This 72-nucleotide RNA from Paraburkholderia megapolitana belongs to the Rfam family "Burkholderia sRNA 54". The base pairs follow the family's consensus structure, which was predicted with RNAfold. Rfam classes the family as a small RNA. About the family: Identified by RNA-seq, RACE and Northern blot. NCBI's taxonomy places the organism under Bacteria, Pseudomonadati, Burkholderiales, Burkholderiaceae, Paraburkholderia.

[Rfam]
RNA sequence: CCGUCUCUCAGGUUCUGGUACGCCCUCGGAAUAGCCAGAACCCUUACGCCGGCCUUGGCCGGCGUUUUUUUU
Numbered sequence: 001c002c003g004u005c006u007c008u009c010a011g012g013u014u015c016u017g018g019u020a021c022g023c024c025c026u027c028g029g030a031a032u033a034g035c036c037a038g039a040a041c042c043c044u045u046a047c048g049c050c051g052g053c054c055u056u057g058g059c060c061g062g063c064g065u066u067u068u069u070u071u072u
Stems, first nucleotide, its partner, number of pairs: 011042009023029002046065008